[Rfam]
RNA sequence: ACAAGAACAAUAACAAGCAAUGUACAAGACAAUAAAAAUAAGACGAAUCGACUCACGCACAAUAAAAACAACACGGCGGAGGCGCAGCUAACUGAUUCUUUUGGAGAGGCGUUGUAUUUGGGGCUUGCCCCACGACCAGGCCGAGAACAACAAAAACUGCCCUCAAGGCAGAGCCUGAACUGGUUGGAUCCACUGGAUCAUGACAACACAGCAACCAAAGCAAUCCGUUUGCUCUUGACUCCCGAUUGGGAGACGUCACAAGCAAAAAAGACUUGUGACAUAGGGCGAUCAACAAAAACAAAAGCCCGUCACCAUAAUAAAAAAAGAGCACGCAACUACUUCUGGGGGAGCUUUAGCUCCCCUUGUAGUUUCUGCCAUAAAGCUUCUGUUCCACCC
Numbered sequence: 001a002c003a004a005g006a007a008c009a010a011u012a013a014c015a016a017g018c019a020a021u022g023u024a025c026a027a028g029a030c031a032a033u034a035a036a037a038a039u040a041a042g043a044c045g046a047a048u049c050g051a052c053u054c055a056c057g058c059a060c061a062a063u064a065a066a067a068a069c070a071a072c073a074c075g076g077c078g079g080a081g082g083c084g085c086a087g088c089u090a091a092c093u094g095a096u097u098c099u100u101u102u103g104g105a106g107a108g109g110c111g112u113u114g115u116a117u118u119u120g121g122g123g124c125u126u127g128c129c130c131c132a133c134g135a136c137c138a139g140g141c142c143g144a145g146a147a148c149a150a151c152a153a154a155a156a157c158u159g160c161c162c163u164c165a166a167g168g169c170a171g172a173g174c175c176u177g178a179a180c181u182g183g184u185u186g187g188a189u190c191c192a193c194u195g196g197a198u199c200a201u202g203a204c205a206a207c208a209c210a211g212c213a214a215c216c217a218a219a220g221c222a223a224u225c226c227g228u229u230u231g232c233u234c235u236u237g238a239c240u241c242c243c244g245a246u247u248g249g250g251a252g253a254c255g256u257c258a259c260a261a262g263c264a265a266a267a268a269a270g271a272c273u274u275g276u277g278a279c280a281u282a283g284g285g286c287g288a289u290c291a292a293c294a295a296a297a298a299c300a301a302a303a304g305c306c307c308g309u310c311a312c313c314a315u316a317a318u319a320a321a322a323a324a325a326g327a328g329c330a331c332g333c334a335a336c337u338a339c340u341u342c343u344g345g346g347g348g349a350g351c352u353u354u355a356g357c358u359c360c361c362c363u364u365g366u367a368g369u370u371u372c373u374g375c376c377a378u379a380a381a382g383c384u385u386c387u388g389u390u391c392c393a394c395c396c
Base pairs, nucleotide, nucleotide: 049084050083052081053080054079099220100219101218102217103216113213114212115211133186134185135184136183137182138181139180157171158170159169160168161167239252240251241250242249275378276377277376279374280373283307284306285305286304326371327370328369329368344363345362346361347360348359349358350357351356
This 396-nucleotide sequence from Pseudomonas agarici belongs to the Rfam family "Pseudomonas sRNA CrcZ". Lineage of the source: Bacteria > Pseudomonadota > Gammaproteobacteria > Pseudomonadaceae > Pseudomonas. The family's RNA type in Rfam is small RNA. The match comes from Rfam's covariance-model search (336 bits).